This 229-nucleotide RNA sequence from Melghirimyces algeriensis belongs to the Rfam family "T-box leader". Uncharged tRNA acts as the effector for transcription antitermination of genes in the T-box leader family. T-boxes are found upstream of many aminoacyl-tRNA synthetase genes and some amino acid biosynthetic genes usually in Gram-positive bacteria. The anticodon of a specific tRNA base pairs to a specifier sequence within the T-box motif, and the NCCA acceptor tail of the tRNA base pairs to a conserved bulge in the T-box antiterminator hairpin. Its family is annotated with tRNA binding in the Gene Ontology. NCBI's taxonomy places the organism under Bacteria, Bacillota, Bacilli, Thermoactinomycetaceae, Melghirimyces.

RNA sequence: AUACAGGCAAUGAUAAGAAUCAGUACUCGUUUUUAAGCGGUUUCAGAGAGACGGUGGUGGGUGUGAACCGUCCCGCCAAAACGGGGAAUCCCUCUUGGAGCUGUGCGUGUAAAUCGGGUUUCCGUACGAAGCGCAACCGGGGAAGGCGGACCGUUAUCCCGUCAUAGAGUGGGUUGGAAACAUACAUUCCGACCAAUCAGGGUGGUAUCGCGGAGCUUCCGUCCCUUGG
Numbered sequence: 001a002u003a004c005a006g007g008c009a010a011u012g013a014u015a016a017g018a019a020u021c022a023g024u025a026c027u028c029g030u031u032u033u034u035a036a037g038c039g040g041u042u043u044c045a046g047a048g049a050g051a052c053g054g055u056g057g058u059g060g061g062u063g064u065g066a067a068c069c070g071u072c073c074c075g076c077c078a079a080a081a082c083g084g085g086g087a088a089u090c091c092c093u094c095u096u097g098g099a100g101c102u103g104u105g106c107g108u109g110u111a112a113a114u115c116g117g118g119u120u121u122c123c124g125u126a127c128g129a130a131g132c133g134c135a136a137c138c139g140g141g142g143a144a145g146g147c148g149g150a151c152c153g154u155u156a157u158c159c160c161g162u163c164a165u166a167g168a169g170u171g172g173g174u175u176g177g178a179a180a181c182a183u184a185c186a187u188u189c190c191g192a193c194c195a196a197u198c199a200g201g202g203u204g205g206u207a208u209c210g211c212g213g214a215g216c217u218u219c220c221g222u223c224c225c226u227u228g229g
Stems, first nucleotide, its partner, number of pairs: 007101002015096004026085006039074002050072006104135005138153003172194007199226004210222005